Overview: The record is a 99-nucleotide RNA from Robbsia andropogonis, which matches "Bacterial small signal recognition particle RNA" in Rfam. Taxonomically the source falls in Robbsia (Bacteria, Pseudomonadota, Betaproteobacteria, Burkholderiales).

[Rfam]
RNA sequence: GACGGGCCUCCUCGCAUGGUGGUGCGGUUAACCUGGUCAGGUCGGGAACGAAGCAGCCACGAUCGCUUUCCACCAGUGCCGAGGGUCCGGCUCGUCACC
Numbered sequence: 001g002a003c004g005g006g007c008c009u010c011c012u013c014g015c016a017u018g019g020u021g022g023u024g025c026g027g028u029u030a031a032c033c034u035g036g037u038c039a040g041g042u043c044g045g046g047a048a049c050g051a052a053g054c055a056g057c058c059a060c061g062a063u064c065g066c067u068u069u070c071c072a073c074c075a076g077u078g079c080c081g082a083g084g085g086u087c088c089g090g091c092u093c094g095u096c097a098c099c
Base pairs, nucleotide, nucleotide: 004093005092006091007090008089009085010084011083012082013081014080015076017075018074019073020072021071022070024066025065026064027063028062029061034059035058036057037056042051043050044049